This 99-nucleotide RNA from Coptis chinensis belongs to the Rfam family "MIR2275 microRNA precursor family".
RNA sequence: UGUUUGAAUAUAAGAAUUGGAUGGAACCAAACCCUUUUGCCUUCUAUCCCAAUUACCUAAAAGAGGGUUUGGUUUCCUCCAAUAUCUCAUUUUCAACAG
Dot-bracket structure: ...(((((..(.((.((((((.((((((((.((((............................)))).)))))))).))))))..)).)..)))))...
The organism belongs to Coptis, within Eukaryota.